RNA: SAM riboswitch aptamer (S box leader)
RNA sequence: CUCUUAUCACGAGUUGGCUGAGGGAUUUGGCCCUUUGACGCCCGGCAACCGCCCAGAAAUGGGAAUGGUGCUACUUCCAACAGACGUAUGUCUGAAAGAUAAGAG
Numbered sequence: 001c002u003c004u005u006a007u008c009a010c011g012a013g014u015u016g017g018c019u020g021a022g023g024g025a026u027u028u029g030g031c032c033c034u035u036u037g038a039c040g041c042c043c044g045g046c047a048a049c050c051g052c053c054c055a056g057a058a059a060u061g062g063g064a065a066u067g068g069u070g071c072u073a074c075u076u077c078c079a080a081c082a083g084a085c086g087u088a089u090g091u092c093u094g095a096a097a098g099a100u101a102a103g104a105g
Stems, first nucleotide, its partner, number of pairs: 001105008013043001016042003022033003027080004044072004049068002052063003076097001081094005